[Rfam]
RNA sequence: CCCAAUAUUUAGCAAAGCCGUCGAAAGGCGGCGACGCAAAGCUAUGAGUCUACGGCAGGCUGCUGCUAAGAUUGUCAGGCUGCAAAA
Numbered sequence: 001c002c003c004a005a006u007a008u009u010u011a012g013c014a015a016a017g018c019c020g021u022c023g024a025a026a027g028g029c030g031g032c033g034a035c036g037c038a039a040a041g042c043u044a045u046g047a048g049u050c051u052a053c054g055g056c057a058g059g060c061u062g063c064u065g066c067u068a069a070g071a072u073u074g075u076c077a078g079g080c081u082g083c084a085a086a087a
Stems, first nucleotide, its partner, number of pairs: 012037002017032006040081004045077003048072003055066004
This 87-nucleotide RNA sequence from Faecalibacterium gallinarum belongs to the Rfam family "c-di-GMP-I riboswitch aptamer". About the family: GEMM was predicted in a large-scale screen for bacterial structured RNA regulatory elements. A search with the family's covariance model found it, with a score of 73 bits. The base pairs follow the family's consensus structure, which is taken from published work.